The record is a 103-nucleotide RNA sequence from Mariniradius saccharolyticus, which matches "SAM riboswitch aptamer (S box leader)" in Rfam. The SAM riboswitch is found upstream of a number of genes which code for proteins involved in methionine or cysteine biosynthesis in Gram-positive bacteria. A reference for the family is Grundy and Henkin (1998), "The S box regulon: a new global transcription termination control system for methionine and cysteine biosynthesis genes in gram-positive bacteria", Mol Microbiol. A search with the family's covariance model found it, with a score of 78 bits. The organism belongs to Mariniradius saccharolyticus, within Bacteria.

[Rfam]
RNA sequence: GAUUUAUAAAGAAGAGGCGAGAGAACAGGCUCGAUGACCCUCUGGCAACCAUUCAAAAACUAUGAAAAGGUGCCAAAACCUGCCCAUUUGGGAACUAUAAAUU
Numbered sequence: 001g002a003u004u005u006a007u008a009a010a011g012a013a014g015a016g017g018c019g020a021g022a023g024a025a026c027a028g029g030c031u032c033g034a035u036g037a038c039c040c041u042c043u044g045g046c047a048a049c050c051a052u053u054c055a056a057a058a059a060c061u062a063u064g065a066a067a068a069g070g071u072g073c074c075a076a077a078a079c080c081u082g083c084c085c086a087u088u089u090g091g092g093a094a095c096u097a098u099a100a101a102u103u
Stems, first nucleotide, its partner, number of pairs: 001103008013043005021032003026082004044074004049070002052066004083092003